A member of the RNA family "Small nucleolar RNA R64/Z200 family" from Senna tora, 94 nucleotides long. It is annotated as a C/D-box small nucleolar RNA. The family's consensus secondary structure was predicted with PFOLD.

RNA sequence: UUUCUGAUGUGGUGAAUUUAGAAUAAAUUCACGUCAAACUUUAGAGAUUUACAAAAUCAACGGGAAUGACAAUUCUAAAUUUAUUGAGCAGAAG
Numbered sequence: 001u002u003u004c005u006g007a008u009g010u011g012g013u014g015a016a017u018u019u020a021g022a023a024u025a026a027a028u029u030c031a032c033g034u035c036a037a038a039c040u041u042u043a044g045a046g047a048u049u050u051a052c053a054a055a056a057u058c059a060a061c062g063g064g065a066a067u068g069a070c071a072a073u074u075c076u077a078a079a080u081u082u083a084u085u086g087a088g089c090a091g092a093a094g
Base pairs, nucleotide, nucleotide: 001094002093003092004091005090006089046058047057048056049055